[Rfam]
RNA sequence: UGUACAACAGCUGUGGACAUUUCAAAGCAAUAAUCUGCUUAAACAAAAACAGACAUUCGUCGAAUAAGUUGGAAGCGCGUGAGAUUGAAUAAGAUGUAAAAUAUGGUACAACCGAGUGGAUUCGAACCACCGACCCCCACCA
Number, nucleotide and partner (000 for none) at each position: 001u000002g000003u000004a000005c000006a000007a000008c000009a000010g000011c000012u000013g000014u000015g000016g000017a000018c000019a000020u045021u000022u043023c000024a000025a000026a039027g038028c037029a036030a000031u000032a000033a000034u000035c000036u029037g028038c027039u026040u000041a000042a000043a022044c000045a020046a000047a000048a000049a000050c000051a000052g000053a000054c000055a000056u000057u064058c000059g000060u000061c000062g000063a000064a057065u000066a000067a000068g000069u000070u000071g000072g000073a000074a000075g000076c000077g000078c000079g000080u000081g000082a000083g000084a000085u000086u000087g000088a000089a000090u000091a000092a000093g000094a000095u000096g000097u000098a000099a000100a000101a000102u000103a000104u139105g138106g137107u000108a000109c000110a000111a000112c000113c132114g131115a000116g130117u129118g128119g127120a000121u000122u000123c000124g000125a000126a000127c119128c118129a117130c116131c114132g113133a000134c000135c000136c000137c106138c105139a104140c000141c000142a000